[Rfam]
RNA sequence: CUCCUCCCAAACAAUGAAAGCCCUGCCUCUCUUUCAUCCUUGCGGCUCCAAUGACCGCGCCAGCUGAGUGCGAGACGUCUAACGUUGU
Number, nucleotide and partner (000 for none) at each position: 001c000002u000003c000004c000005u000006c000007c000008c000009a000010a000011a000012c000013a000014a000015u000016g000017a000018a000019a000020g000021c000022c000023c000024u000025g000026c000027c000028u000029c000030u000031c000032u000033u000034u067035c066036a065037u000038c000039c063040u062041u059042g058043c057044g056045g055046c000047u053048c000049c000050a000051a000052u000053g047054a000055c045056c044057g043058c042059g041060c000061c000062a040063g039064c000065u036066g035067a034068g000069u000070g000071c000072g000073a000074g000075a000076c000077g000078u000079c000080u000081a000082a000083c000084g000085u000086u000087g000088u000
The family of this 88-nucleotide RNA from Alkalicoccobacillus porphyridii is "BsrC". The base pairs follow the family's consensus structure, which was predicted with CMfinder. Taxonomically the source falls in Alkalicoccobacillus (Bacteria, Bacillati, Caryophanales, Bacillaceae). The 301 nucleotide sequence from Kouji Nakamura has been trimmed to a highly conserved ~85 nucleotide long core to form this family.